Shown here is an 82-nucleotide RNA from Thermostaphylospora chromogena, a member of the family "ZMP/ZTP riboswitch aptamer (pfl RNA motif)".

RNA sequence: UCUACACGUCGCGACUGGCGCAUUGAGGUGGGGCACCACCGGGGAGCGAAGGGAGCGGAGGCCGAGCGCCUGGGUCUUCGCG
Numbered sequence: 001u002c003u004a005c006a007c008g009u010c011g012c013g014a015c016u017g018g019c020g021c022a023u024u025g026a027g028g029u030g031g032g033g034c035a036c037c038a039c040c041g042g043g044g045a046g047c048g049a050a051g052g053g054a055g056c057g058g059a060g061g062c063c064g065a066g067c068g069c070c071u072g073g074g075u076c077u078u079c080g081c082g
Stems, first nucleotide, its partner, number of pairs: 003055001005053001007051001009049004015043002017070005028039004059077005